This 74-nucleotide RNA from Fibrisoma limi belongs to the Rfam family "tRNA". Taxonomically the source falls in Fibrisoma limi (Bacteria, Cytophagia, Cytophagales, Spirosomataceae). Rfam classes the family as a transfer RNA.
RNA sequence: GUGGUUGUAGCUCAGUCGGUUAGAGCGUCGGAUUGUGGUUCCGAAGGUCGUGGGUUCGAGACCCAUCAUCCACC
Numbered sequence: 001g002u003g004g005u006u007g008u009a010g011c012u013c014a015g016u017c018g019g020u021u022a023g024a025g026c027g028u029c030g031g032a033u034u035g036u037g038g039u040u041c042c043g044a045a046g047g048u049c050g051u052g053g054g055u056u057c058g059a060g061a062c063c064c065a066u067c068a069u070c071c072a073c074c
Base pairs, nucleotide, nucleotide: 001073002072003071004070006068007067010026011025012024013023028044029043030042031041032040050066051065052064053063054062